[Rfam]
RNA sequence: AUUCGUUGCAAGUUCCCGAUAGGUUCUGGAAAAACCCAGAGAUUCCUUGUAACCGAAUAAAAUUAGGGGGAAUAUUUAUAAUG
Numbered sequence: 001a002u003u004c005g006u007u008g009c010a011a012g013u014u015c016c017c018g019a020u021a022g023g024u025u026c027u028g029g030a031a032a033a034a035c036c037c038a039g040a041g042a043u044u045c046c047u048u049g050u051a052a053c054c055g056a057a058u059a060a061a062a063u064u065a066g067g068g069g070g071a072a073u074a075u076u077u078a079u080a081a082u083g
Stems, first nucleotide, its partner, number of pairs: 013072005021047003025040005053067002
RNA: SAM-III riboswitch aptamer (SMK box)
Organism: Enterococcus hermanniensis